[Rfam]
RNA sequence: UACAUAGAUACGGCUCUCUCAAGGGUGUUGGCUCAUCCCCUAAUGAAAGGGGGUGAGGCCCAUGACAGUAUAUGAAGCAUUAUCUUUGAUGAUUGGUGGUGGCAUGCUUGUCGCUACGAUCUUCAUUGCAGUAUUUACGGCUAUUACUGUCAUGAAUAAAGAAAAAUAGACACCCUUGAGUGUUUGGGAGAACAACAGGGAGUCUAUUUUCUGUAACUAAUCCAUAUUGAGCCGCCCAUUUAGAGGGAAGGUCUAUUGUACAUGACCGCUUUGGUGUUACCAGCACCAGGCGG
Numbered sequence: 001u002a003c004a005u006a007g008a009u010a011c012g013g014c015u016c017u018c019u020c021a022a023g024g025g026u027g028u029u030g031g032c033u034c035a036u037c038c039c040c041u042a043a044u045g046a047a048a049g050g051g052g053g054u055g056a057g058g059c060c061c062a063u064g065a066c067a068g069u070a071u072a073u074g075a076a077g078c079a080u081u082a083u084c085u086u087u088g089a090u091g092a093u094u095g096g097u098g099g100u101g102g103c104a105u106g107c108u109u110g111u112c113g114c115u116a117c118g119a120u121c122u123u124c125a126u127u128g129c130a131g132u133a134u135u136u137a138c139g140g141c142u143a144u145u146a147c148u149g150u151c152a153u154g155a156a157u158a159a160a161g162a163a164a165a166a167u168a169g170a171c172a173c174c175c176u177u178g179a180g181u182g183u184u185u186g187g188g189a190g191a192a193c194a195a196c197a198g199g200g201a202g203u204c205u206a207u208u209u210u211c212u213g214u215a216a217c218u219a220a221u222c223c224a225u226a227u228u229g230a231g232c233c234g235c236c237c238a239u240u241u242a243g244a245g246g247g248a249a250g251g252u253c254u255a256u257u258g259u260a261c262a263u264g265a266c267c268g269c270u271u272u273g274g275u276g277u278u279a280c281c282a283g284c285a286c287c288a289g290g291c292g293g
Stems, first nucleotide, its partner, number of pairs: 001260004005255003009251001011234006018180008027171002029168001033056003037052005064151007078091002190211003235247003266293004273287006
Rfam assigns this 293-nucleotide sequence from Aneurinibacillus soli to the family "BsrG". It is annotated as a small RNA. The family has 6 seed sequences and 614 matches in Rfam 15.1. Pairs were carried over by alignment from the consensus structure, which was predicted with WAR. A search with the family's covariance model found it, with a score of 102 bits. Rfam describes the family as follows. bsrE, bsrG and bsrH pair through intermolecular interactions with antisense sRNAs. Its family is annotated with toxin activity and autolysis in the Gene Ontology.